This 355-nucleotide part of an RNA from Dolosigranulum pigrum belongs to the Rfam family "Bacterial small subunit ribosomal RNA". For this family Rfam cites "Crystal structure of the ribosome at 5.5 A resolution" (Yusupov et al., Science, 2001). Pairs were carried over by alignment from the consensus structure, which is taken from published work. The match comes from Rfam's covariance-model search (1615 bits).

RNA sequence: GGCGUAAAGGGAGCGCAGGCGGUCUGUUUAGUCUAAUGUGAAAGCCCACGGCUUAACCGUGGAACGGCAUUGGAAACUGACAGACUUGAAUGUAGAAGAGGAAAAUGGAAUUCCAAGUGUAGCGGUGGAAUGCGUAGAUAUUUGGAGGAACACCAGUGGCGAAGGCGAUUUUCUGGUCUAACAUUGACGCUGAGGCUCGAAAGCGUGGGGAGCGAACAGGAUUAGAUACCCUGGUAGUCCACGCUGUAAACGAUGAGUGCUAAGUGUUGGGGGCUUUCCGGCCCUCGGUGCUGGAGCUAACGUAUUAAGCACUCCGCCUGGGGAUUACGACCGCAAGGUUGAAACUCAAAAGAAU
Numbered sequence: 001g002g003c004g005u006a007a008a009g010g011g012a013g014c015g016c017a018g019g020c021g022g023u024c025u026g027u028u029u030a031g032u033c034u035a036a037u038g039u040g041a042a043a044g045c046c047c048a049c050g051g052c053u054u055a056a057c058c059g060u061g062g063a064a065c066g067g068c069a070u071u072g073g074a075a076a077c078u079g080a081c082a083g084a085c086u087u088g089a090a091u092g093u094a095g096a097a098g099a100g101g102a103a104a105a106u107g108g109a110a111u112u113c114c115a116a117g118u119g120u121a122g123c124g125g126u127g128g129a130a131u132g133c134g135u136a137g138a139u140a141u142u143u144g145g146a147g148g149a150a151c152a153c154c155a156g157u158g159g160c161g162a163a164g165g166c167g168a169u170u171u172u173c174u175g176g177u178c179u180a181a182c183a184u185u186g187a188c189g190c191u192g193a194g195g196c197u198c199g200a201a202a203g204c205g206u207g208g209g210g211a212g213c214g215a216a217c218a219g220g221a222u223u224a225g226a227u228a229c230c231c232u233g234g235u236a237g238u239c240c241a242c243g244c245u246g247u248a249a250a251c252g253a254u255g256a257g258u259g260c261u262a263a264g265u266g267u268u269g270g271g272g273g274c275u276u277u278c279c280g281g282c283c284c285u286c287g288g289u290g291c292u293g294g295a296g297c298u299a300a301c302g303u304a305u306u307a308a309g310c311a312c313u314c315c316g317c318c319u320g321g322g323g324a325u326u327a328c329g330a331c332c333g334c335a336a337g338g339u340u341g342a343a344a345c346u347c348a349a350a351a352g353a354a355u
Stems, first nucleotide, its partner, number of pairs: 001318003009315001011198004016192001018191003022085007030078002032074008046062006089185003093180004100174007107151001111147008122133003159166002203244006212238002217233004255314006263292012296303002320347003329340004